The family of this 108-nucleotide RNA from Populus tomentosa is "MIR6440 microRNA precursor family". The family has 3 seed sequences and 8 matches in Rfam 15.1. NCBI's taxonomy places the organism under Eukaryota, Viridiplantae, Tracheophyta, Salicaceae, Populus.
[Rfam]
RNA sequence: UCGAAAUUGAUCAAACUCGGUCAAAAUCGGUCAAACUCGUAAAAUUGGUUCGAUUUUACCGAUUUUAACCGAGUUUGACCGAUUUUGACCGAGUUUGACCGAUUUCGA
Number, nucleotide and partner (000 for none) at each position: 001u000002c107003g106004a105005a104006a103007u102008u101009g100010a000011u098012c097013a096014a095015a094016c093017u092018c091019g000020g089021u088022c087023a086024a085025a084026a083027u082028c081029g080030g079031u078032c077033a076034a075035a074036c073037u072038c071039g069040u068041a066042a065043a064044a063045u062046u061047g060048g000049u000050u000051c000052g000053a000054u000055u000056u000057u000058a000059c000060c047061g046062a045063u044064u043065u042066u041067a000068a040069c039070c000071g038072a037073g036074u035075u034076u033077g032078a031079c030080c029081g028082a027083u026084u025085u024086u023087g022088a021089c020090c000091g018092a017093g016094u015095u014096u013097g012098a011099c000100c009101g008102a007103u006104u005105u004106c003107g002108a000

It scores 96 bits against the family's covariance model.